[Rfam]
RNA sequence: AUCAUCAGUAGUGGUUAAUACUAUCUCAAGAUAAUAUUAAUUACAAUUACAUUAUAGAAACCUUAUAUCAUUUUUCUCUCUCAAUCUCCCAAUGUCGUGCAGGGGACUCUUGCGAGUCUUUCUAUAUGACACUAGUUAAUACUGGAUUGAGGUCUAAUUUGAUCAUUUUUUAACCCAUAGCUGAGUGUACCUUGACUAGCCCCAAACAGGCUAGGCACAAGGUUCACUUCGUUUCCGGUUUCUUAGAGCAAAGUUUAUGUGUUGAGGAAGGUCCCUCCUCUCGAGACAUCUCUUCGGGGAUGGACAUCGAUGUGGGAUUAGUUGUAUGUUUACAUUUUUGGAAAUGGUGUAAUACCAUAGCCUGUUGUAUUCCACUGUACCGCUUCCUCAAGAUAAUACAUUU
Dot-bracket structure: .......(((((((((((((.((((....)))).)))))))..)).)))).....(((((((....((((..((....(((((((((...(.(((((.(.(((((((((....)))))).))).).))))).)(((....))))))))))))...))..))))...................(((((.(..(((.(((((.........)))))...)))..).))))).......)))))))...........((((....((((((((.(...................................................)..((..((((..(.(.((.(((((.....)))))......))).)......)))).))))))))))..)))).......

Source information
This 403-nucleotide RNA from Maudiozyma saulgeensis belongs to the Rfam family "Small nucleolar RNA snR37". For this family Rfam cites "Genome-wide searching for pseudouridylation guide snoRNAs: analysis of the Saccharomyces cerevisiae genome" (Schattner et al., Nucleic Acids Res, 2004). Rfam links the family to the GO terms RNA processing and nucleolus. It scores 200 bits against the family's covariance model. By type it is an H/ACA-box small nucleolar RNA. Taxonomically the source falls in Maudiozyma (Eukaryota, Saccharomycotina, Saccharomycetales, Saccharomycetaceae).